[Rfam]
RNA sequence: CAGUGUUACAGCUCUUUUAGAAGCAGGCUUUUUGGUUUUUGCCAGAAAGCCCAA
Numbered sequence: 001c002a003g004u005g006u007u008a009c010a011g012c013u014c015u016u017u018u019a020g021a022a023g024c025a026g027g028c029u030u031u032u033u034g035g036u037u038u039u040u041g042c043c044a045g046a047a048a049g050c051c052c053a054a
Stems, first nucleotide, its partner, number of pairs: 026051011
A member of the RNA family "U7 small nuclear RNA" from Pan troglodytes, 54 nucleotides long.
It scores 51 bits against the family's covariance model.